[Rfam]
RNA sequence: CGCACAUUGGCAGUGUGGUUAGCUGGUUGUGUAGUAUAUAGCACUGCCACUAUCCGCACUGCCCUUGUGAC
Numbered sequence: 001c002g003c004a005c006a007u008u009g010g011c012a013g014u015g016u017g018g019u020u021a022g023c024u025g026g027u028u029g030u031g032u033a034g035u036a037u038a039u040a041g042c043a044c045u046g047c048c049a050c051u052a053u054c055c056g057c058a059c060u061g062c063c064c065u066u067g068u069g070a071c
Stems, first nucleotide, its partner, number of pairs: 003069004009063002012060007020052003024049004029044003
RNA: mir-34 microRNA precursor family
Organism: Cryptotermes secundus